Rfam assigns this 86-nucleotide RNA from Paragonimus westermani to the family "Selenocysteine transfer RNA". The match comes from Rfam's covariance-model search (79 bits).
[Rfam]
Nucleotides: 086
Stems, first nucleotide, its partner, number of pairs: 001086007009078001012027006028046006048061005063077004
Number, partner (000 for none) and nucleotide at each position: 001086g002085c003084c004083g005082g006081g007080a008000u009078g010000a011000g012027c013026c014025u015024c016023g017022g018000u019000g020000g021000u022017c023016c024015g025014g026013g027012g028046u029045g030044c031043a032042g033041g034000c035000u036000u037000c038000a039000a040000a041033c042032c043031u044030g045029u046028a047000g048061c049060c050059g051058g052057u053000u054000g055000a056000c057052g058051c059050c060049g061048g062000a063077g064076c065075g066074g067000u068000u069000c070000g071000a072000u073000u074066c075065c076064g077063c078009c079000u080007u081006c082005u083004c084003g085002g086001c